[Rfam]
The family of this 76-nucleotide RNA from Gordonia crocea is "Fluoride riboswitch aptamer (crcB RNA motif)". NCBI's taxonomy places the organism under Bacteria, Bacillati, Mycobacteriales, Gordoniaceae, Gordonia.

RNA sequence: ACUGGCCGCGGCGAUGGAUCUCGCCGGGGUGCCCGACACCCGAACCGCCGCAUCGGCUGAUAGUUCCUGGUUGUUG
Numbered sequence: 001a002c003u004g005g006c007c008g009c010g011g012c013g014a015u016g017g018a019u020c021u022c023g024c025c026g027g028g029g030u031g032c033c034c035g036a037c038a039c040c041c042g043a044a045c046c047g048c049c050g051c052a053u054c055g056g057c058u059g060a061u062a063g064u065u066c067c068u069g070g071u072u073g074u075u076g
Stems, first nucleotide, its partner, number of pairs: 010025004016067003020063002047057003